A member of the RNA family "Archaeal large subunit ribosomal RNA" from uncultured marine crenarchaeote KM3-153-F8, 574 nucleotides of a longer RNA.

[Rfam]
RNA sequence: GCGCAGACGCCAUUUGGUGGAUGGAUAGGCUUGAGUGGCUAUGAAGGGCGUGUCAAGCUGCGAUAUGCCUCAGGUAGGUGCAUGAGACCUUUGAUCUGAGGAUGCCCGAAUAGGACUUCCUUUUAGCGAUCCUUUUGGAUCCCUAAAGUUCCAGAUUUUAUUAUUUGGAACGCGAAACCUUUGGAAUGAAACAUCUGAGUAAAAGGGUGAAAAGAAAUCAAUAGAGAUCCCCUUAAUAGCAGCGAGCGAAAUGGGGUUAGCCCAAUCUGAAUCUCUAAUGGUAACAUUAGAGAGAUGUGGGGUUUGUUACAAGAGUUUGCGUUCCUUUCUUUUCUAGUUGAAGUAGUCUGGAAAGACUCAACAUAGAGGGUGAUAUUCCCGUAAACAAAGUAUGGAGAGAGGUACGUUUUUGUAACAGAGUACCUGGCCUUGACAGUGGCUAGGGAAUGUGGGGGAAAGCAGCCUCCAAGGCUAAAUACAACUCAAGACCGAUAGUGAAUAGUACCGUGAGGGAAAUCUGAAAAGAACCCUGAAAGGGGUGUGAAAAGUGCCUGAAACCAAAUGGUUACAGACG
Numbered sequence: 001g002c003g004c005a006g007a008c009g010c011c012a013u014u015u016g017g018u019g020g021a022u023g024g025a026u027a028g029g030c031u032u033g034a035g036u037g038g039c040u041a042u043g044a045a046g047g048g049c050g051u052g053u054c055a056a057g058c059u060g061c062g063a064u065a066u067g068c069c070u071c072a073g074g075u076a077g078g079u080g081c082a083u084g085a086g087a088c089c090u091u092u093g094a095u096c097u098g099a100g101g102a103u104g105c106c107c108g109a110a111u112a113g114g115a116c117u118u119c120c121u122u123u124u125a126g127c128g129a130u131c132c133u134u135u136u137g138g139a140u141c142c143c144u145a146a147a148g149u150u151c152c153a154g155a156u157u158u159u160a161u162u163a164u165u166u167g168g169a170a171c172g173c174g175a176a177a178c179c180u181u182u183g184g185a186a187u188g189a190a191a192c193a194u195c196u197g198a199g200u201a202a203a204a205g206g207g208u209g210a211a212a213a214g215a216a217a218u219c220a221a222u223a224g225a226g227a228u229c230c231c232c233u234u235a236a237u238a239g240c241a242g243c244g245a246g247c248g249a250a251a252u253g254g255g256g257u258u259a260g261c262c263c264a265a266u267c268u269g270a271a272u273c274u275c276u277a278a279u280g281g282u283a284a285c286a287u288u289a290g291a292g293a294g295a296u297g298u299g300g301g302g303u304u305u306g307u308u309a310c311a312a313g314a315g316u317u318u319g320c321g322u323u324c325c326u327u328u329c330u331u332u333u334c335u336a337g338u339u340g341a342a343g344u345a346g347u348c349u350g351g352a353a354a355g356a357c358u359c360a361a362c363a364u365a366g367a368g369g370g371u372g373a374u375a376u377u378c379c380c381g382u383a384a385a386c387a388a389a390g391u392a393u394g395g396a397g398a399g400a401g402g403u404a405c406g407u408u409u410u411u412g413u414a415a416c417a418g419a420g421u422a423c424c425u426g427g428c429c430u431u432g433a434c435a436g437u438g439g440c441u442a443g444g445g446a447a448u449g450u451g452g453g454g455g456a457a458a459g460c461a462g463c464c465u466c467c468a469a470g471g472c473u474a475a476a477u478a479c480a481a482c483u484c485a486a487g488a489c490c491g492a493u494a495g496u497g498a499a500u501a502g503u504a505c506c507g508u509g510a511g512g513g514a515a516a517u518c519u520g521a522a523a524a525g526a527a528c529c530c531u532g533a534a535a536g537g538g539g540u541g542u543g544a545a546a547a548g549u550g551c552c553u554g555a556a557a558c559c560a561a562a563u564g565g566u567u568a569c570a571g572a573c574g
Stems, first nucleotide, its partner, number of pairs: 009566009023552001024518002028490002030487006036480002046107003049062003068101006077089003112121003149170008177208001178206005188195002218225002229256004239247002259473004267300003277288004311410004322401003337386003343359001345358004362366001368380003423444007451467005505512002
The family is grouped with related families in Rfam's "LSU clan". Rfam's curators put it in the seed alignment. The source organism's lineage runs through Archaea, Thermoproteati, Nitrososphaerota, Nitrososphaeria and Nitrosopumilales.